[Rfam]
Nucleotides: 074
Stems, first nucleotide, its partner, number of pairs: 001073007010026003028044005050066005
Number, partner (000 for none) and nucleotide at each position: 001073g002072c003071u004070c005069u006068g007067g008000u009000a010026g011025c012024c013000c014000a015000a016000u017000g018000g019000g020000u021000a022000g023000a024012g025011g026010c027000g028044a029043c030042g031041c032040a033000c034000u035000c036000a037000a038000a039000a040032u041031g042030c043029g044028u045000u046000c047000a048000g049000u050066g051065c052064g053063g054062g055000u056000u057000c058000a059000a060000g061000u062054c063053c064052c065051g066050c067007c068006c069005g070004g071003a072002g073001u074000a
Background: tRNA: a 74-nucleotide sequence from Bifidobacterium cuniculi. It is annotated as a transfer RNA.